[Rfam]
Nucleotides: 196
Stems, first nucleotide, its partner, number of pairs: 001039008041175006051096002097160003105134002137154004
Number, partner (000 for none) and nucleotide at each position: 001039u002038c003037c004036a005035u006034c007033c008032a009000a010000u011000a012000g013000g014000c015000g016000a017000g018000c019000a020000c021000a022000a023000c024000g025000a026000a027000a028000c029000c030000c031000g032008u033007g034006g035005a036004u037003g038002g039001a040000g041175g042174c043173g044172g045171g046170g047000g048000a049000c050000c051096c052095a053000a054000c055000g056000g057000u058000c059000c060000g061000c062000c063000g064000u065000a066000u067000u068000u069000a070000g071000g072000a073000c074000c075000a076000g077000g078000a079000a080000c081000c082000g083000c084000c085000c086000g087000c088000g089000g090000u091000u092000c093000c094000u095052u096051g097160g098159g099158g100000u101000g102000a103000a104000g105134c106133c107000g108000a109000c110000g111000c112000g113000u114000u115000u116000c117000c118000c119000a120000u121000g122000g123000a124000u125000u126000c127000g128000a129000c130000g131000a132000a133106g134105g135000c136000c137154g138153g139152g140151c141000g142000a143000c144000c145000u146000c147000u148000u149000c150000c151140g152139c153138c154137c155000g156000a157000a158099c159098c160097c161000g162000a163000c164000a165000g166000c167000u168000g169000a170046c171045c172044u173043c174042g175041c176000a177000g178000g179000c180000g181000c182000a183000u184000u185000a186000c187000g188000a189000g190000a191000g192000g193000a194000a195000u196000c
The family of this 196-nucleotide RNA from Mycobacterium cookii is "c-di-AMP riboswitch aptamer (ydaO/yuaA leader)".